[Rfam]
RNA sequence: ACCAUCCUUUUGGGGUUGCGCUACUGUCCGAUGGGUACCUAGUGAGGGCAGUACUGCUAACUCCUGCACAACACACCGAAAUCAACUAGAGCUUUGCUUUGCCUUGGUGCAAUUUUUGGAAUA
Numbered sequence: 001a002c003c004a005u006c007c008u009u010u011u012g013g014g015g016u017u018g019c020g021c022u023a024c025u026g027u028c029c030g031a032u033g034g035g036u037a038c039c040u041a042g043u044g045a046g047g048g049c050a051g052u053a054c055u056g057c058u059a060a061c062u063c064c065u066g067c068a069c070a071a072c073a074c075a076c077c078g079a080a081a082u083c084a085a086c087u088a089g090a091g092c093u094u095u096g097c098u099u100u101g102c103c104u105u106g107g108u109g110c111a112a113u114u115u116u117u118g119g120a121a122u123a
Base pairs, nucleotide, nucleotide: 006015007014008013018057019056020055023052024051025050026049027048028047029046035043036042081108082107083106084105087101088100089099090098091097092096

Background:
Rfam assigns this 123-nucleotide RNA from Pongo abelii to the family "U4atac minor spliceosomal RNA". Its Rfam clan is "U4 clan". Rfam 15.1 lists 1,648 matches to the family in 818 species. Rfam's curators write: U4atac is an essential component of the minor U12-type spliceosome complex which is required for removal of the rarer class of eukaryotic introns (AT-AC, U12-type). The literature on the family includes a 2008 paper in Nucleic Acids Res by Davila Lopez et al., "Computational screen for spliceosomal RNA genes aids in defining the phylogenetic distribution of major and minor spliceosomal components". A search with the family's covariance model found it, with a score of 86 bits. Its family is annotated with U4atac snRNP, spliceosomal tri-snRNP complex assembly and mRNA 5'-splice site recognition in the Gene Ontology. Taxonomically the source falls in Pongo (Eukaryota, Euteleostomi, Tetrapoda, Amniota).